[Rfam]
RNA sequence: GAGCUGUGAGAGACUUUGCGCUCCAUGUUAUGACAGGGGUCUUCACGAUCGUCCGAUUAUCGGACGGAAAACUAUGGCGCAUCUGAGCUC
Numbered sequence: 001g002a003g004c005u006g007u008g009a010g011a012g013a014c015u016u017u018g019c020g021c022u023c024c025a026u027g028u029u030a031u032g033a034c035a036g037g038g039g040u041c042u043u044c045a046c047g048a049u050c051g052u053c054c055g056a057u058u059a060u061c062g063g064a065c066g067g068a069a070a071a072c073u074a075u076g077g078c079g080c081a082u083c084u085g086a087g088c089u090c
Stems, first nucleotide, its partner, number of pairs: 001090004

Source information:
The family of this 90-nucleotide RNA sequence from Nyssa sinensis is "small nucleolar RNA snoR114". Pairs were carried over by alignment from the consensus structure, which was predicted with RNAalifold. Rfam 15.1 lists 1,645 matches to the family in 183 species. Lineage of the source: Eukaryota > Streptophyta > Streptophytina > Nyssaceae > Nyssa.